RNA sequence: GAGCGAUGAUGAAAAGGCUUUACAACUGAACUUGUCACUAUGAAGGUUUCUACACUUGACCUGAGCUCA
Number, nucleotide and partner (000 for none) at each position: 001g068002a067003g066004c065005g000006a000007u000008g000009a000010u000011g000012a000013a000014a033015a032016g031017g000018c000019u028020u000021u000022a000023c000024a000025a000026c000027u000028g019029a000030a000031c016032u015033u014034g000035u000036c000037a000038c000039u000040a000041u000042g000043a000044a000045g000046g000047u000048u000049u000050c000051u000052a000053c000054a000055c000056u000057u000058g000059a000060c000061c000062u000063g000064a000065g004066c003067u002068c001069a000